The family of this 369-nucleotide sequence from Liquorilactobacillus oeni is "Bacterial RNase P class B". The organism belongs to Liquorilactobacillus oeni, within Bacteria. Pairs were carried over by alignment from the consensus structure, which is taken from published work. By type it is a ribozyme. Rfam describes the family as follows. Ribonuclease P (RNase P) is a ubiquitous endoribonuclease, found in archaea, bacteria and eukarya as well as chloroplasts and mitochondria. Its best characterised activity is the generation of mature 5'-ends of tRNAs by cleaving the 5'-leader elements of precursor-tRNAs. Cellular RNase Ps are ribonucleoproteins.
RNA sequence: GUUUUCUGGUAAUCGCGGUUUGCUUUAUGCAGACUGAGGAAAGUCCAAGCUUGCACAAGCUGAGAUGCUUGUAGUGAUCGUGCUUGCUGAAAAAAUAAGGCAAGGUACCUUUAUGGUAACGGCAGACAAAAAAGCUAAGGUUUGACUAUGCUUUAGUAGUUUUGAAAAGUGCCACAGUGACGAAACAAUAUCGGAAACGAUAUUGGUGGAACGAGGUAAACCCCGCGAGCAGGUAACCCAAACUUUGGUAGGGGCGCUUCAUGACGGAAAUGAACUAAUCAUGGGGGCAGGCAUUUUGCCUGGAGAUAGAUGAUUACCACCGAUUUCGGUUUCCUGAACCGGAUGACGUACGGAACGUGGCUUAUAGAG
Numbered sequence: 001g002u003u004u005u006c007u008g009g010u011a012a013u014c015g016c017g018g019u020u021u022g023c024u025u026u027a028u029g030c031a032g033a034c035u036g037a038g039g040a041a042a043g044u045c046c047a048a049g050c051u052u053g054c055a056c057a058a059g060c061u062g063a064g065a066u067g068c069u070u071g072u073a074g075u076g077a078u079c080g081u082g083c084u085u086g087c088u089g090a091a092a093a094a095a096u097a098a099g100g101c102a103a104g105g106u107a108c109c110u111u112u113a114u115g116g117u118a119a120c121g122g123c124a125g126a127c128a129a130a131a132a133a134g135c136u137a138a139g140g141u142u143u144g145a146c147u148a149u150g151c152u153u154u155a156g157u158a159g160u161u162u163u164g165a166a167a168a169g170u171g172c173c174a175c176a177g178u179g180a181c182g183a184a185a186c187a188a189u190a191u192c193g194g195a196a197a198c199g200a201u202a203u204u205g206g207u208g209g210a211a212c213g214a215g216g217u218a219a220a221c222c223c224c225g226c227g228a229g230c231a232g233g234u235a236a237c238c239c240a241a242a243c244u245u246u247g248g249u250a251g252g253g254g255c256g257c258u259u260c261a262u263g264a265c266g267g268a269a270a271u272g273a274a275c276u277a278a279u280c281a282u283g284g285g286g287g288c289a290g291g292c293a294u295u296u297u298g299c300c301u302g303g304a305g306a307u308a309g310a311u312g313a314u315u316a317c318c319a320c321c322g323a324u325u326u327c328g329g330u331u332u333c334c335u336g337a338a339c340c341g342g343a344u345g346a347c348g349u350a351c352g353g354a355a356c357g358u359g360g361c362u363u364a365u366a367g368a369g
Base pairs, nucleotide, nucleotide: 004369005368006367008318009317010316011315012314013313014312016036017035018034019033020032021031041363042362043361045360046359047358049356050233051232052231053230054229055072056071057070058069059068060067078228079227080226081225082224083104084103085102086101087100088099105120106118107117108116109115121223122222124162125161126160127159132153133152134151135150139147140146141145169221170220171217172216173215186205187204188203189202190201191200192199193198237253238252239251257286258285259284260283261282262281263280288302289301290300291299292298325343326342327341328340329339330338331337